This 89-nucleotide sequence from Escovopsis weberi belongs to the Rfam family "Small nucleolar RNA R38". Rfam 15.1 lists 2,295 matches to the family in 1,305 species. Rfam classes the family as a C/D-box small nucleolar RNA. The source organism's lineage runs through Eukaryota, Ascomycota, sordariomyceta, Sordariomycetes and Escovopsis. Rfam describes the family as follows. snoR38 is a C/D box small nucleolar RNA conserved across yeast, human, Arabidopsis and rice. It is encoded in the intron of elongation factor-1 gamma in both pombe and cerevisiae. snoR38 guides the methylation of 2'-O-ribose sites in 28S rRNA. A reference for the family is Chen et al. (2003), "The high diversity of snoRNAs in plants: identification and comparative study of 120 snoRNA genes from Oryza sativa", Nucleic Acids Res.
[Rfam]
RNA sequence: GACCGCAUAUGAUGAGCUAGCUUUCAAAAUCAUUCAGUUAUCCCUGUCUGAAAAUACUGUGUUGAUCUUGUCUAAAAUCUGAUCCGGCU
Numbered sequence: 001g002a003c004c005g006c007a008u009a010u011g012a013u014g015a016g017c018u019a020g021c022u023u024u025c026a027a028a029a030u031c032a033u034u035c036a037g038u039u040a041u042c043c044c045u046g047u048c049u050g051a052a053a054a055u056a057c058u059g060u061g062u063u064g065a066u067c068u069u070g071u072c073u074a075a076a077a078u079c080u081g082a083u084c085c086g087g088c089u
Base pairs, nucleotide, nucleotide: 001089003087004086005085007083